RNA: c-di-AMP riboswitch aptamer (ydaO/yuaA leader)
Nucleotides: 141
Base pairs, nucleotide, nucleotide: 011126012125013124014123018036019035020034037121038120039119040118041117042116047057048056058106059105060104066078067077068076069075081100082099083098084097
Number, partner (000 for none) and nucleotide at each position: 001000c002000a003000a004000a005000a006000a007000a008000a009000c010000a011126g012125g013124c014123c015000g016000a017000a018036g019035c020034u021000a022000a023000u024000c025000a026000a027000u028000c029000g030000a031000u032000u033000a034020a035019g036018c037121g038120c039119g040118g041117g042116g043000g044000a045000a046000c047057c048056a049000u050000c051000c052000u053000a054000a055000u056048u057047g058106g059105g060104g061000u062000g063000a064000a065000g066078u067077c068076a069075c070000a071000u072000u073000u074000g075069g076068u077067g078066a079000c080000c081100g082099g083098g084097u085000g086000a087000u088000u089000g090000c091000u092000c093000u094000u095000u096000g097084a098083c099082c100081c101000g102000a103000a104060u105059c106058c107000g108000u109000c110000a111000g112000c113000u114000a115000a116042c117041c118040u119039c120038g121037c122000a123014g124013g125012c126011c127000a128000a129000a130000a131000a132000a133000a134000g135000g136000a137000g138000a139000g140000g141000a